[Rfam]
The family of this 148-nucleotide RNA sequence from Pseudomonas aeruginosa is "radC RNA". The family's consensus secondary structure is taken from published work. The family has 148 seed sequences and 500 matches in Rfam 15.1. It is annotated as a cis-regulatory element.

RNA sequence: AUGAUGAGCGCGUGAUCUGCUGACGUUGUCAGCGACAUGCCCCAUGCAGCUCGGAUCCGAAGUGCUGCAGCACAGCCCAGCGUGUUGAUCCAACCCAAGACCGUAUAGCUUCUGGUAGCACGGUCGGUCGGCCUCGGUCGAUAGAAGC
Numbered sequence: 001a002u003g004a005u006g007a008g009c010g011c012g013u014g015a016u017c018u019g020c021u022g023a024c025g026u027u028g029u030c031a032g033c034g035a036c037a038u039g040c041c042c043c044a045u046g047c048a049g050c051u052c053g054g055a056u057c058c059g060a061a062g063u064g065c066u067g068c069a070g071c072a073c074a075g076c077c078c079a080g081c082g083u084g085u086u087g088a089u090c091c092a093a094c095c096c097a098a099g100a101c102c103g104u105a106u107a108g109c110u111u112c113u114g115g116u117a118g119c120a121c122g123g124u125c126g127g128u129c130g131g132c133c134u135c136g137g138u139c140g141a142u143a144g145a146a147g148c
Stems, first nucleotide, its partner, number of pairs: 011039004016034001019033006046068005054090004069086005121147001127142006
Dot-bracket structure: ..........((((.(..((((((...))))))).))))......(((((...[[[[......)))))(((((........)))))]]]]..............................(.....((((((....))))))....).